[Rfam]
A member of the RNA family "Small nucleolar RNA SNORD111" from Tauraco erythrolophus, 82 nucleotides long. Taxonomically the source falls in Tauraco (Eukaryota, Bilateria, Tetrapoda, Amniota). Its family is annotated with RNA processing and nucleolus in the Gene Ontology.

RNA sequence: UAGCCUGAAAUGAUGUUACGAAUUCACGUCUCUUCUCUGAGAUGUGUGGUGGAGACAGCUGGGUGCGUUUCUGAUCAGGCUU
Numbered sequence: 001u002a003g004c005c006u007g008a009a010a011u012g013a014u015g016u017u018a019c020g021a022a023u024u025c026a027c028g029u030c031u032c033u034u035c036u037c038u039g040a041g042a043u044g045u046g047u048g049g050u051g052g053a054g055a056c057a058g059c060u061g062g063g064u065g066c067g068u069u070u071c072u073g074a075u076c077a078g079g080c081u082u
Stems, first nucleotide, its partner, number of pairs: 002081004
The family's RNA type in Rfam is C/D-box small nucleolar RNA.